[Rfam]
Overview:
This 37-nucleotide RNA belongs to the Rfam family "DUF805b RNA". The sequence is in the family's curated seed alignment.
RNA sequence: AAAGGGGAAACCGAAAACCUUUAAGUUAGAGUAGGUG
Numbered sequence: 001a002a003a004g005g006g007g008a009a010a011c012c013g014a015a016a017a018c019c020u021u022u023a024a025g026u027u028a029g030a031g032u033a034g035g036u037g
Stems, first nucleotide, its partner, number of pairs: 002021004010036003
Dot-bracket structure: .((((....[[[.....))))............]]].